[Rfam]
Source information: Shown here is a 307-nucleotide RNA from Gasterosteus aculeatus, a member of the family "Nuclear RNase P". It is annotated as a ribozyme. The sequence is in the family's curated seed alignment. The source organism's lineage runs through Eukaryota, Euteleostomi, Euteleosteomorpha, Acanthomorphata and Gasterosteus.
RNA sequence: GUGGGUGGAAGCUCAUUGUAGAGGUCACAAGCUGAGUGCUCGUCACUCCACCAAUCACCUCGGGGAAGGUCUGAGACAAGAGCCAAUAGUUACCCUUGCAGGGUGUCACCUGAUACAGGUGAGCAAGUGAACAGAAAAUAUGGCCCUGUGAGAGCAGCUGUCACAGGAGAAGCUGCAUGGUGCUGUUGGUCAGCGCCAUUCAGUGGAUGUGGCUCUCUGGCUUGGAACCGCUUGCGGCUGGCGUAUGAGUGCGAUGUAUGAGGUGGGGCAUUGCUCCAGAACCCAAUUCAGACUACUCUCCUCCCAC
Numbered sequence: 001g002u003g004g005g006u007g008g009a010a011g012c013u014c015a016u017u018g019u020a021g022a023g024g025u026c027a028c029a030a031g032c033u034g035a036g037u038g039c040u041c042g043u044c045a046c047u048c049c050a051c052c053a054a055u056c057a058c059c060u061c062g063g064g065g066a067a068g069g070u071c072u073g074a075g076a077c078a079a080g081a082g083c084c085a086a087u088a089g090u091u092a093c094c095c096u097u098g099c100a101g102g103g104u105g106u107c108a109c110c111u112g113a114u115a116c117a118g119g120u121g122a123g124c125a126a127g128u129g130a131a132c133a134g135a136a137a138a139u140a141u142g143g144c145c146c147u148g149u150g151a152g153a154g155c156a157g158c159u160g161u162c163a164c165a166g167g168a169g170a171a172g173c174u175g176c177a178u179g180g181u182g183c184u185g186u187u188g189g190u191c192a193g194c195g196c197c198a199u200u201c202a203g204u205g206g207a208u209g210u211g212g213c214u215c216u217c218u219g220g221c222u223u224g225g226a227a228c229c230g231c232u233u234g235c236g237g238c239u240g241g242c243g244u245a246u247g248a249g250u251g252c253g254a255u256g257u258a259u260g261a262g263g264u265g266g267g268g269c270a271u272u273g274c275u276c277c278a279g280a281a282c283c284c285a286a287u288u289c290a291g292a293c294u295a296c297u298c299u300c301c302u303c304c305c306a307c
Stems, first nucleotide, its partner, number of pairs: 001307004007301003012262005021061004034048005071291005081239004091105005106122006123235007143221003264278006